[Rfam]
RNA sequence: AAGUGAAAAGGGCAAAUCACGGGAAACUGUGAGACGCAAAACUAAGAGGGCCUUACCCGCAGAAAUGCGAAUGGCAGCCAGUUACCACA
Numbered sequence: 001a002a003g004u005g006a007a008a009a010g011g012g013c014a015a016a017u018c019a020c021g022g023g024a025a026a027c028u029g030u031g032a033g034a035c036g037c038a039a040a041a042c043u044a045a046g047a048g049g050g051c052c053u054u055a056c057c058c059g060c061a062g063a064a065a066u067g068c069g070a071a072u073g074g075c076a077g078c079c080a081g082u083u084a085c086c087a088c089a
Stems, first nucleotide, its partner, number of pairs: 012037002017032006040083004048079002050075003058069004
Dot-bracket structure: ...........((...((((((....))))))...))..((((....(((((.....((((....))))...)))..))))))......
About this RNA: The record is an 89-nucleotide RNA sequence from Bacillus sp. Y1, which matches "c-di-GMP-I riboswitch aptamer" in Rfam. A search with the family's covariance model found it, with a score of 70 bits. Pairs were carried over by alignment from the consensus structure, which is taken from published work.